A member of the RNA family "Enterobacterial sRNA STnc370" from Escherichia coli, 70 nucleotides long.
Rfam's curators put it in the seed alignment.
The family's RNA type in Rfam is small RNA.
Pairs were carried over by alignment from the consensus structure, which was predicted with WAR.
NCBI's taxonomy places the organism under Bacteria, Pseudomonadati, Gammaproteobacteria, Enterobacterales, Escherichia coli.

Nucleotides: 070
Stems, first nucleotide, its partner, number of pairs: 004020003036063010
Number, partner (000 for none) and nucleotide at each position: 001000a002000c003000c004020g005019a006018a007000a008000g009000a010000c011000g012000a013000u014000u015000a016000a017000u018006u019005u020004c021000g022000u023000u024000u025000u026000u027000u028000a029000g030000u031000c032000a033000u034000a035000a036063a037062a038061a039060a040059a041058c042057c043056u044055g045054c046000c047000a048000g049000c050000g051000a052000u053000g054045g055044c056043a057042g058041g059040u060039u061038u062037u063036u064000u065000u066000u067000u068000g069000c070000c